The record is a 155-nucleotide RNA from Oryza sativa, which matches "MIR396 microRNA precursor family" in Rfam. Gene Ontology terms of the family: RISC complex and miRNA-mediated post-transcriptional gene silencing.
RNA sequence: CUUUGUGAUCUUCCACAGCUUUCUUGAACUGCACGCAUGAUGAAUAAUCCCUUUGGUUAAUUGUGAUCUGGUCUCUGAGAGAUCGUAGUUAGACUCGAUCGGUUGCAUUGGCAUCAGAGAGAGCAGUUCAAUAAAGCUGUGGGAAAUUGCAGAGA
Numbered sequence: 001c002u003u004u005g006u007g008a009u010c011u012u013c014c015a016c017a018g019c020u021u022u023c024u025u026g027a028a029c030u031g032c033a034c035g036c037a038u039g040a041u042g043a044a045u046a047a048u049c050c051c052u053u054u055g056g057u058u059a060a061u062u063g064u065g066a067u068c069u070g071g072u073c074u075c076u077g078a079g080a081g082a083u084c085g086u087a088g089u090u091a092g093a094c095u096c097g098a099u100c101g102g103u104u105g106c107a108u109u110g111g112c113a114u115c116a117g118a119g120a121g122a123g124c125a126g127u128u129c130a131a132u133a134a135a136g137c138u139g140u141g142g143g144a145a146a147u148u149g150c151a152g153a154g155a
Stems, first nucleotide, its partner, number of pairs: 003152005013142003017138006024131004029126004